[Rfam]
RNA sequence: UCCGUCCGCCCCGUGGACGCUGCGACCAUCCGCGGCCGGUCCCGGCUACCCUGGCGGCGUGCGCCUUCGCCGCGACGUUCUGUGAGACGUUCGGGGGGAAGCCGCAAAGCCGACAGCCGUCGCACUCCAGGGAGCCCCUUCAUG
Numbered sequence: 001u002c003c004g005u006c007c008g009c010c011c012c013g014u015g016g017a018c019g020c021u022g023c024g025a026c027c028a029u030c031c032g033c034g035g036c037c038g039g040u041c042c043c044g045g046c047u048a049c050c051c052u053g054g055c056g057g058c059g060u061g062c063g064c065c066u067u068c069g070c071c072g073c074g075a076c077g078u079u080c081u082g083u084g085a086g087a088c089g090u091u092c093g094g095g096g097g098g099a100a101g102c103c104g105c106a107a108a109g110c111c112g113a114c115a116g117c118c119g120u121c122g123c124a125c126u127c128c129a130g131g132g133a134g135c136c137c138c139u140u141c142a143u144g
Stems, first nucleotide, its partner, number of pairs: 060106004065101004109123002112121003
Streptomyces-metH RNA: a 144-nucleotide RNA from Streptomyces luteolifulvus. Lineage of the source: Bacteria > Bacillati > Actinomycetota > Streptomycetaceae > Streptomyces. It is annotated as a small RNA. The match comes from Rfam's covariance-model search (102 bits).